About this RNA: Rfam assigns this 79-nucleotide RNA sequence from Scleropages formosus to the family "Small nucleolar RNA SNORD35". From the family's description: U35 is a C/D box snoRNA located in intron 6 of ribosomal protein L13A and intron 3 of ribosomal protein S11 in humans and at homologous positions in mouse and chicken ribosomal protein genes. U35 guides the methylation of 2'-O-ribose sites in 28S rRNA. A search with the family's covariance model found it, with a score of 58 bits.

RNA sequence: UGCAAAUGAUGUCUUUUCUCACGAUGGUCUACCUAGCUACUCUGAGGACAAUGCCUUAAGGCAACACUGAUGCAACACU
Numbered sequence: 001u002g003c004a005a006a007u008g009a010u011g012u013c014u015u016u017u018c019u020c021a022c023g024a025u026g027g028u029c030u031a032c033c034u035a036g037c038u039a040c041u042c043u044g045a046g047g048a049c050a051a052u053g054c055c056u057u058a059a060g061g062c063a064a065c066a067c068u069g070a071u072g073c074a075a076c077a078c079u
Stems, first nucleotide, its partner, number of pairs: 001074004
By type it is a C/D-box small nucleolar RNA.